[Rfam]
RNA sequence: UCCAGAUAAGGGCAAAACUAUUGAAAAAUAGUGACGCAAAGCUUCAGGUCUAAGGCCAUUUUUGGCUACGACAGCUGGGUUCCCUGG
Number, nucleotide and partner (000 for none) at each position: 001u000002c000003c000004a000005g000006a000007u000008a000009a000010g000011g000012g037013c036014a000015a000016a000017a032018c031019u030020a029021u028022u027023g000024a000025a000026a000027a022028a021029u020030a019031g018032u017033g000034a000035c000036g013037c012038a000039a000040a081041g080042c079043u078044u000045c077046a076047g075048g072049u071050c070051u000052a000053a000054g000055g066056c065057c064058a063059u000060u000061u000062u000063u058064g057065g056066c055067u000068a000069c000070g050071a049072c048073a000074g000075c047076u046077g045078g043079g042080u041081u040082c000083c000084c000085u000086g000087g000

Overview: c-di-GMP-I riboswitch aptamer: an 87-nucleotide RNA sequence from Priestia megaterium. Pairs were carried over by alignment from the consensus structure, which is taken from published work.